[Rfam]
Nucleotides: 118
Base pairs, nucleotide, nucleotide: 004040005039006038007037008036009035016031017030018029019028020027046071047070048069050067051066053064054063055062056061081113083111084110085109086108087107088106089105090104091103092102093101094100
Number, partner (000 for none) and nucleotide at each position: 001000u002000a003000a004040c005039c006038c007037u008036u009035u010000u011000a012000a013000g014000u015000g016031c017030a018029g019028u020027c021000c022000a023000g024000a025000g026000a027020g028019g029018c030017u031016g032000g033000c034000a035009a036008a037007a038006g039005g040004g041000g042000g043000g044000a045000g046071g047070g048069c049000a050067a051066a052000c053064c054063a055062c056061a057000u058000c059000g060000a061056u062055g063054u064053g065000u066051u067050u068000c069048g070047c071046c072000a073000a074000a075000g076000c077000u078000u079000u080000a081113u082000c083111a084110c085109c086108c087107u088106c089105u090104u091103u092102u093101g094100c095000c096000c097000u098000a099000g100094g101093c102092a103091a104090g105089a106088g107087a108086g109085g110084g111083u112000u113081a114000u115000u116000u117000c118000a
Rfam assigns this 118-nucleotide RNA from Bacillus sp. DNRA2 to the family "PyrR binding site".
The match comes from Rfam's covariance-model search (59 bits).
NCBI's taxonomy places the organism under Bacteria, Bacilli, Caryophanales, Bacillaceae, Bacillus.
On this family, see Bonner et al., Nucleic Acids Res 2001: "Molecular recognition of pyr mRNA by the Bacillus subtilis attenuation regulatory protein PyrR".
From the family's description: This family represents the PyrR binding site and terminator structure.